[Rfam]
RNA sequence: GGACCAUCCAGAGCGGCCGAGAGACCUGGCUCGUCGACGCCGCAGCAACCCCGCGAGGGGUGCUCAUGCCAGGACCGAUGGGAG
Number, nucleotide and partner (000 for none) at each position: 001g000002g000003a000004c081005c080006a079007u078008c077009c000010a000011g000012a000013g043014c042015g041016g040017c039018c000019g000020a000021g032022a031023g030024a000025c000026c072027u071028g070029g069030c023031u022032c021033g000034u000035c000036g000037a000038c000039g017040c016041c015042g014043c013044a064045g063046c062047a061048a000049c060050c059051c058052c057053g000054c000055g000056a000057g052058g051059g050060g049061u047062g046063c045064u044065c000066a000067u000068g076069c029070c028071a027072g026073g000074a000075c000076c068077g008078a007079u006080g005081g004082g000083a000084g000

The record is an 84-nucleotide RNA from Kineococcus aurantiacus, which matches "SAM riboswitch aptamer (S box leader)" in Rfam. The family's consensus secondary structure is taken from published work.